tRNA: a 73-nucleotide RNA sequence from Propionispora sp. 2/2-37. The organism belongs to Propionispora, within Bacteria.

RNA sequence: AGGGGUGUAGCCAAGUCGGUAAGGCACGGGACUUUGACUCCCGCAUGCGUUGGUUCGAGUCCAGCCACCCCUG
Numbered sequence: 001a002g003g004g005g006u007g008u009a010g011c012c013a014a015g016u017c018g019g020u021a022a023g024g025c026a027c028g029g030g031a032c033u034u035u036g037a038c039u040c041c042c043g044c045a046u047g048c049g050u051u052g053g054u055u056c057g058a059g060u061c062c063a064g065c066c067a068c069c070c071c072u073g
Base pairs, nucleotide, nucleotide: 001072002071003070004069005068006067007066010025011024012023027043028042029041030040031039049065050064051063052062053061